RNA sequence: UUCGUUCUUCUCUUUACUCGGAUCGUCCGGCACGUUCCUGCCGGUGAAGGGACUGCACC
Numbered sequence: 001u002u003c004g005u006u007c008u009u010c011u012c013u014u015u016a017c018u019c020g021g022a023u024c025g026u027c028c029g030g031c032a033c034g035u036u037c038c039u040g041c042c043g044g045u046g047a048a049g050g051g052a053c054u055g056c057a058c059c
Stems, first nucleotide, its partner, number of pairs: 010051007027044006

Description
The record is a 59-nucleotide RNA from Streptomyces sp. DvalAA-14, which matches "msiK RNA" in Rfam. Rfam classes the family as a cis-regulatory element. The organism belongs to Streptomyces, within Bacteria.